[Rfam]
RNA sequence: GUCUCGCCGCCUGACACUUUCGUCUCAACCUCGUAGUGUCGAUGCGAAGACGCAGGUGAGCAAAGUUUCAGGUGUGCAAGACC
Dot-bracket structure: .(((.(((((((((.(((((...((((.(((......................))))))).))))).))))))).)).)))..
Numbered sequence: 001g002u003c004u005c006g007c008c009g010c011c012u013g014a015c016a017c018u019u020u021c022g023u024c025u026c027a028a029c030c031u032c033g034u035a036g037u038g039u040c041g042a043u044g045c046g047a048a049g050a051c052g053c054a055g056g057u058g059a060g061c062a063a064a065g066u067u068u069c070a071g072g073u074g075u076g077c078a079a080g081a082c083c
Stems, first nucleotide, its partner, number of pairs: 002081003006077002008074007016066005024060004029056003